[Rfam]
RNA sequence: UUAAGUUGUGGGUGACAACCGUUAAAAACACCCAAACAAAAUUCAUUCUCCGCAAACUGCUAGCGGCGUUAUAAAAUAGGCAGAUAUAAACAAGAAUGGAGGAAAAU
Numbered sequence: 001u002u003a004a005g006u007u008g009u010g011g012g013u014g015a016c017a018a019c020c021g022u023u024a025a026a027a028a029c030a031c032c033c034a035a036a037c038a039a040a041a042u043u044c045a046u047u048c049u050c051c052g053c054a055a056a057c058u059g060c061u062a063g064c065g066g067c068g069u070u071a072u073a074a075a076a077u078a079g080g081c082a083g084a085u086a087u088a089a090a091c092a093a094g095a096a097u098g099g100a101g102g103a104a105a106a107u
Base pairs, nucleotide, nucleotide: 005019006018007017008016010033011032012031013030014029044098045097046096047095048094050066051065052064053063

Shown here is a 107-nucleotide RNA sequence, a member of the family "GP20-a RNA".